[Rfam]
RNA sequence: CGUGGCGGGUGGAGACAUCUGACGUGAUGGUGCAGAAGUCAGCAGAGGCCAUAGUAGUGAACCGUAGCCCCACAAGGGUGAAGGGCAUGAAGGGC
Numbered sequence: 001c002g003u004g005g006c007g008g009g010u011g012g013a014g015a016c017a018u019c020u021g022a023c024g025u026g027a028u029g030g031u032g033c034a035g036a037a038g039u040c041a042g043c044a045g046a047g048g049c050c051a052u053a054g055u056a057g058u059g060a061a062c063c064g065u066a067g068c069c070c071c072a073c074a075a076g077g078g079u080g081a082a083g084g085g086c087a088u089g090a091a092g093g094g095c
Stems, first nucleotide, its partner, number of pairs: 001026002004023001006021006039046002048095003057088003069085003
Dot-bracket structure: ((.(.((((((....)))))).).))............((....)).(((......(((.........(((...........))))))....)))
Group II catalytic intron D1-D4-1: a 95-nucleotide RNA sequence from Vitreoscilla filiformis.
On this family, see Bonen and Vogel, Trends Genet 2001: "The ins and outs of group II introns".
Pairs were carried over by alignment from the consensus structure.
The organism belongs to Vitreoscilla, within Bacteria.
About the family: Group II introns are found in rRNA, tRNA and mRNA of organelles in fungi, plants and protists, and also in mRNA in bacteria.